[Rfam]
RNA sequence: UCGUCAGGUGGGAUGAUCCUCACCUGUUCCUCCUUUGGAGGACAAAUAAAACAGGAUGAUUGGAGAUGCGUGAAACGUGAUUGACGUCUCUGCGUAAUCAGGACUUGCAACACCCUGAUUGCUCCUAUCUGAU
Numbered sequence: 001u002c003g004u005c006a007g008g009u010g011g012g013a014u015g016a017u018c019c020u021c022a023c024c025u026g027u028u029c030c031u032c033c034u035u036u037g038g039a040g041g042a043c044a045a046a047u048a049a050a051a052c053a054g055g056a057u058g059a060u061u062g063g064a065g066a067u068g069c070g071u072g073a074a075a076c077g078u079g080a081u082u083g084a085c086g087u088c089u090c091u092g093c094g095u096a097a098u099c100a101g102g103a104c105u106u107g108c109a110a111c112a113c114c115c116u117g118a119u120u121g122c123u124c125c126u127a128u129c130u131g132a133u
Base pairs, nucleotide, nucleotide: 025044026043028042029041030040031039032038033037072090073089075087076086077085078083094122095121096120097119098118099117100116101115102114

Background:
U8 small nucleolar RNA: a 133-nucleotide RNA sequence from Cebus imitator. Rfam links the family to the GO terms RNA processing and nucleolus. A search with the family's covariance model found it, with a score of 126 bits. Lineage of the source: Eukaryota > Deuterostomia > Sarcopterygii > Amniota > Cebus. The family's RNA type in Rfam is C/D-box small nucleolar RNA.